[Rfam]
RNA sequence: CCCCAGCAUCAAGAGUUGGGCUGACGCCCAACACCAACCUGCCGACCCGGGCAAGGUGGUGCUCCCGCGAGGGAGGAUGUGGCCGUACCGGCAACCAAACGGGACCGA
Numbered sequence: 001c002c003c004c005a006g007c008a009u010c011a012a013g014a015g016u017u018g019g020g021c022u023g024a025c026g027c028c029c030a031a032c033a034c035c036a037a038c039c040u041g042c043c044g045a046c047c048c049g050g051g052c053a054a055g056g057u058g059g060u061g062c063u064c065c066c067g068c069g070a071g072g073g074a075g076g077a078u079g080u081g082g083c084c085g086u087a088c089c090g091g092c093a094a095c096c097a098a099a100c101g102g103g104a105c106c107g108a
Stems, first nucleotide, its partner, number of pairs: 006080005015032001017030005033060003038056003041052003046103004082092004